[Rfam]
RNA sequence: AAUUUCAAAUCGCUGAAUCUCCAAAUUUGGAGAAUGGGGGAACCGCUGUUAACAACAUAGAUCGAAUUAAUUAUAGUCUUAACAAGAGACUUAAGGAAUGAUUAAUUCGAACUCUGAUUGAUGCAGGAAUAAAUGGGGUGAAUCUUUAGAAUAGUGAGUGGGAUUGUUUCCACAAUCACUCACCUACUAAAGUAGGGCAACUCUUGCCCGAAUCCGUCAGCUAACCUCGUAAGCGUAAGAGAUAGGGAAU
Numbered sequence: 001a002a003u004u005u006c007a008a009a010u011c012g013c014u015g016a017a018u019c020u021c022c023a024a025a026u027u028u029g030g031a032g033a034a035u036g037g038g039g040g041a042a043c044c045g046c047u048g049u050u051a052a053c054a055a056c057a058u059a060g061a062u063c064g065a066a067u068u069a070a071u072u073a074u075a076g077u078c079u080u081a082a083c084a085a086g087a088g089a090c091u092u093a094a095g096g097a098a099u100g101a102u103u104a105a106u107u108c109g110a111a112c113u114c115u116g117a118u119u120g121a122u123g124c125a126g127g128a129a130u131a132a133a134u135g136g137g138g139u140g141a142a143u144c145u146u147u148a149g150a151a152u153a154g155u156g157a158g159u160g161g162g163a164u165u166g167u168u169u170c171c172a173c174a175a176u177c178a179c180u181c182a183c184c185u186a187c188u189a190a191a192g193u194a195g196g197g198c199a200a201c202u203c204u205u206g207c208c209c210g211a212a213u214c215c216g217u218c219a220g221c222u223a224a225c226c227u228c229g230u231a232a233g234c235g236u237a238a239g240a241g242a243u244a245g246g247g248a249a250u
Stems, first nucleotide, its partner, number of pairs: 011235004018033005034230006044135002136215003144192006195209004
About this RNA
c-di-AMP riboswitch aptamer (ydaO/yuaA leader): a 250-nucleotide RNA from Paenibacillus albiflavus. A search with the family's covariance model found it, with a score of 87 bits. NCBI's taxonomy places the organism under Bacteria, Bacillati, Caryophanales, Paenibacillaceae, Paenibacillus.